[Rfam]
Notes: Rfam assigns this 117-nucleotide RNA sequence from Rhizobium sp. BK275 to the family "Alphaproteobacterial ar14". Rfam links the family to the GO term biological process involved in symbiotic interaction. The organism belongs to Rhizobium, within Bacteria. Rfam describes the family as follows. Smr14C2 was renamed NfeR1 (Nodule Formation Efficiency RNA) highly expressed in salt stress and during the symbiotic interaction on legume roots.
RNA sequence: UGUCCGAGACGCGGCUUACCUCCUCCCGAGCCAGCGUCUACGUGGUGGCAUCCUCCUCCCGCCGCCACGCGUCAUAAAAGGCGUCUGCCGGAUCUCCUCCCUCGGCAGACGCCUUAU
Number, nucleotide and partner (000 for none) at each position: 001u000002g000003u000004c000005c000006g000007a039008g038009a037010c000011g035012c034013g032014g031015c030016u029017u000018a000019c000020c000021u000022c000023c000024u000025c000026c000027c000028g000029a016030g015031c014032c013033a000034g012035c011036g000037u009038c008039u007040a000041c069042g068043u067044g066045g065046u064047g063048g062049c000050a000051u000052c000053c000054u000055c000056c000057u000058c000059c000060c000061g000062c048063c047064g046065c045066c044067a043068c042069g041070c000071g000072u000073c000074a000075u000076a000077a000078a000079a000080g000081g112082c111083g110084u109085c108086u107087g106088c105089c104090g103091g102092a000093u000094c000095u000096c000097c000098u000099c000100c000101c000102u091103c090104g089105g088106c087107a086108g085109a084110c083111g082112c081113c000114u000115u000116a000117u000